[Rfam]
RNA: Small nucleolar RNA SNORA46
Organism: Patagioenas fasciata
RNA sequence: AGCACUAUUUUUAAACCUGUUGGUGGAAUUUCCUGACCACCGUGGGUUACGCUGUAGUGCUAAAGAAUCUCCUGGUUCUUUAGAGCACAGCUGACCUUGUUCUUUGCUCCGUUCAGCUGAUGCUCCUCUGUAGCUAAGGAACAGAA
Numbered sequence: 001a002g003c004a005c006u007a008u009u010u011u012u013a014a015a016c017c018u019g020u021u022g023g024u025g026g027a028a029u030u031u032c033c034u035g036a037c038c039a040c041c042g043u044g045g046g047u048u049a050c051g052c053u054g055u056a057g058u059g060c061u062a063a064a065g066a067a068u069c070u071c072c073u074g075g076u077u078c079u080u081u082a083g084a085g086c087a088c089a090g091c092u093g094a095c096c097u098u099g100u101u102c103u104u105u106g107c108u109c110c111g112u113u114c115a116g117c118u119g120a121u122g123c124u125c126c127u128c129u130g131u132a133g134c135u136a137a138g139g140a141a142c143a144g145a146a
Stems, first nucleotide, its partner, number of pairs: 002060007014048004021042006068141001070140004074135004079130001082127001085123003088119004093114002